[Rfam]
RNA sequence: GGGCGUAAAGCGAGCGCAGACGGUUAUUUAAGUCUGAAGUGAAAGCCCUCGGCUUAACCGAGGAAUUGCUUUGGAAACUGGAUAACUUGAGUGCAGUAGAGGAAAGUGGAACUCCAUGUGUAGCGGUGAAAUGCGUAGAUAUAUGGAAGAACACCAGUGGCGAAGGCGGCUUUCUGGACUGUAACUGACGUUGAGGCUCGAAAGUGUGGGUAGCAAACAGGAUUAGAUACCCUGGUAGUCCACACCGUAAACGAUGAGUGCUAGCUGUUCGAGGGUUUCCGCCCUUGAGUGGCGAAGCUAACGCAUUAAGCACUCCGCCUGGGGAGUACGACCGCAAGGUUGAAACUCAAAGGAAU
Dot-bracket structure: .(((.....(.((((.(.(((.(((((((.(((((((((((.....((((((.....))))))...)))))))))..)))))))))...((((((((...((((((((....(((((((...(((......)))......)))))))....).......((....)).)))))))..))))).)))...))))..))))....((((((...((...((((.........))))...))))))))..........((((((..((((((((((((......))))))))))))...((....)).....)))))))))).(((......((((....))))....)))........